[Rfam]
RNA sequence: CCUCGGGCUCCCUGGGACACUAACAGAGCAACUGCUCACCGGGGAGAGUGCCCCGAGCUCCCUAAAGGGCUGCAGCGCGAACGGCUGGACCCGGGAGCAGCU
Number, nucleotide and partner (000 for none) at each position: 001c000002c000003u000004c000005g000006g000007g098008c097009u096010c095011c094012c093013u000014g091015g090016g000017a000018c087019a086020c084021u083022a000023a000024c000025a000026g000027a000028g078029c077030a000031a000032c075033u074034g073035c072036u000037c069038a000039c067040c000041g063042g062043g061044g060045a059046g058047a000048g000049u055050g054051c000052c000053c000054c050055g049056a000057g000058c046059u045060c044061c043062c042063u041064a000065a000066a000067g039068g000069g037070c000071u000072g035073c034074a033075g032076c000077g029078c028079g000080a000081a000082c000083g021084g020085c000086u019087g018088g000089a000090c015091c014092c000093g012094g011095g010096a009097g008098c007099a000100g000101c000102u000

This 102-nucleotide RNA from Nyctereutes procyonoides belongs to the Rfam family "mir-8904 microRNA precursor family". Taxonomically the source falls in Nyctereutes (Eukaryota, Amniota, Mammalia, Canidae). The family has 2 seed sequences and 207 matches in Rfam 15.1. Gene Ontology terms of the family: miRNA-mediated post-transcriptional gene silencing and RISC complex.